[Rfam]
RNA sequence: CCUAUGGACUGUUAUAUCAAACCCAAGUAGUACCUUCGAAAGGAGAUAGCAAAAGGGGACAGGUUGAAAUAGGAA
Numbered sequence: 001c002c003u004a005u006g007g008a009c010u011g012u013u014a015u016a017u018c019a020a021a022c023c024c025a026a027g028u029a030g031u032a033c034c035u036u037c038g039a040a041a042g043g044a045g046a047u048a049g050c051a052a053a054a055g056g057g058g059a060c061a062g063g064u065u066g067a068a069a070u071a072g073g074a075a
Base pairs, nucleotide, nucleotide: 001073002072003071004070005069009062010061011060012059013058022057023056024055030050031049034045035044036043037042
Dot-bracket structure: (((((...(((((........(((.....((..((((....))))...))....))))))))......)))))..

A member of the RNA family "RAGATH-18 RNA", 75 nucleotides long. The family's RNA type in Rfam is small RNA.